The record is a 71-nucleotide RNA sequence, which matches "tRNA" in Rfam. Rfam's curators write: Transfer RNA (tRNA) molecules are approximately 80 nucleotides in length.
RNA sequence: GGAAGCGUGCCUGAAAGUUAAGGACCUCCUUGAUAGGGAGGCUUAUAGGGGUUCAAACCCCCUCACUUCCU
Numbered sequence: 001g002g003a004a005g006c007g008u009g010c011c012u013g014a015a016a017g018u019u020a021a022g023g024a025c026c027u028c029c030u031u032g033a034u035a036g037g038g039a040g041g042c043u044u045a046u047a048g049g050g051g052u053u054c055a056a057a058c059c060c061c062c063u064c065a066c067u068u069c070c071u
Base pairs, nucleotide, nucleotide: 001070002069003068004067005066007064010023011022012021025041026040027039028038029037047063048062049061050060051059
Dot-bracket structure: (((((.(..(((........))).(((((.......))))).....(((((.......)))))).))))).